The family of this 141-nucleotide sequence from Parambassis ranga is "Small nucleolar RNA SNORD10".
Rfam 15.1 lists 433 matches to the family in 306 species.
Pairs were carried over by alignment from the consensus structure, which was predicted with WAR.
For this family Rfam cites "RNomics: an experimental approach that identifies 201 candidates for novel, small, non-messenger RNAs in mouse" (Huttenhofer et al., EMBO J, 2001).
The source organism's lineage runs through Eukaryota, Actinopteri, Euacanthomorphacea, Ovalentaria and Parambassis.
It is annotated as a C/D-box small nucleolar RNA.
RNA sequence: GUAUAAUGAUGAAGCACAUGCGUGUCAACUGACUCUGUAGCACCCUGUUGUGUGGUGGCACUGGUUGGCGUUUUGCUGACUUGUGUCUUCUAGACAAAAGGGGCUCAGGGACAUGAUCACACCUAUACAACUUCUGAAUGC
Numbered sequence: 001g002u003a004u005a006a007u008g009a010u011g012a013a014g015c016a017c018a019u020g021c022g023u024g025u026c027a028a029c030u031g032a033c034u035c036u037g038u039a040g041c042a043c044c045c046u047g048u049u050g051u052g053u054g055g056u057g058g059c060a061c062u063g064g065u066u067g068g069c070g071u072u073u074u075g076c077u078g079a080c081u082u083g084u085g086u087c088u089u090c091u092a093g094a095c096a097a098a099a100g101g102g103g104c105u106c107a108g109g110g111a112c113a114u115g116a117u118c119a120c121a122c123c124u125a126u127a128c129a130a131c132u133u134c135u136g137a138a139u140g141c
Stems, first nucleotide, its partner, number of pairs: 001141004043102004048097004